The record is an 87-nucleotide RNA sequence, which matches "freshwater-2 RNA" in Rfam. The family's RNA type in Rfam is cis-regulatory element. The family's consensus secondary structure is taken from published work. It is one of the family's seed sequences.
RNA sequence: CCUAUCACAUGCGAUAGGACUUAUGCGGAAUACAACCGCGUACCUAGGAGAACUAGGAUUGGACUCCUAAAGAGGAGAAAACAAAUG
Numbered sequence: 001c002c003u004a005u006c007a008c009a010u011g012c013g014a015u016a017g018g019a020c021u022u023a024u025g026c027g028g029a030a031u032a033c034a035a036c037c038g039c040g041u042a043c044c045u046a047g048g049a050g051a052a053c054u055a056g057g058a059u060u061g062g063a064c065u066c067c068u069a070a071a072g073a074g075g076a077g078a079a080a081a082c083a084a085a086u087g
Base pairs, nucleotide, nucleotide: 001018002017003016004015005014006013022042023041024040025039026038027037028036043057044056045055046054